[Rfam]
RNA: Eukaryotic large subunit ribosomal RNA, nucleotides 2225 to 2789
Organism: Pomacea canaliculata
RNA sequence: UAGAACAAUGUAGGUAAGGGAAGUCGGCAAAUUGGAUCCGUAACUUCGGGAAAAGGAUUGGCUCUGAGGACUGGGUCAGUCGGGCUGGAGUGCGAAGCGGGUUUUGGGACGACACGGGCUGGGCGAGGCUACCGCGAGGCGGGGUCAGGGUCCGCAAGGGCCUUUUCUCCCCGAGCGGCGGGCUGAGUUCGGACCGUCGGUUUAACCUUUCCCGUGGACCGCCUCAGCUAGGCGGCGGGCCUCCCGGCUCGUCCGCGUCGGCUGGCAUUCAACAGUCGACUCAGAACUGGUACGGACCAGGGGAAUCCGACUGUCUAAUUAAAACAAAGCAUUGCGAUGGCCAUCACUCGGUGUUGACGCAAUGUGAUUUCUGCCCAGUGCUCUGAAUGUCAAAGUGAAGAAAUUCAAGCAAGCGCGGGUAAACGGCGGGAGUAACUAUGACUCUCUUAAGGUAGCCAAAUGCCUCGUCAUCUAAUUAGUGACGCGCAUGAAUGGAUUAACGAGAUUCCCACUGUCCCUAUCUACUAUCUAGCGAAACCACAGCCAAGGGAACGGGCUUGGCGGA
Dot-bracket structure: ((((.....(((((((.(((..............(((((....(....).....)))))((.(((((((((((.((((((((((((.(.(......(.((.(((..(...(((.(.((((..((...((....))...))..)))).).))))..)))..)).).....).).))).................................................................................)))))))))......)))))..)))))).))(...).......(((((((((..(((.........)))..((((((((...(((.......))).....))))))))...(((.(((..((((((.(..(((.....((((....)))).....))))))))..)))))((((((.......))))))(...)...............(((((.......)))))..........)))....)).)))))))....))).)))))))..))))............(((((........)))))....